[Rfam]
RNA sequence: UUCUUAUCCAGAAAGGUGGAGGGACAGGCCCGAUGAUACCUUGGCAACCAAUCGAUUUGAUAAUGGUGCCAAUUCCUGCUCUGCAGCAAUGCAGGGGGAGAUAAGCA
Numbered sequence: 001u002u003c004u005u006a007u008c009c010a011g012a013a014a015g016g017u018g019g020a021g022g023g024a025c026a027g028g029c030c031c032g033a034u035g036a037u038a039c040c041u042u043g044g045c046a047a048c049c050a051a052u053c054g055a056u057u058u059g060a061u062a063a064u065g066g067u068g069c070c071a072a073u074u075c076c077u078g079c080u081c082u083g084c085a086g087c088a089a090u091g092c093a094g095g096g097g098g099a100g101a102u103a104a105g106c107a
Stems, first nucleotide, its partner, number of pairs: 001107001003105006013042005021031003025078004043070004048066002051061003074099001079096006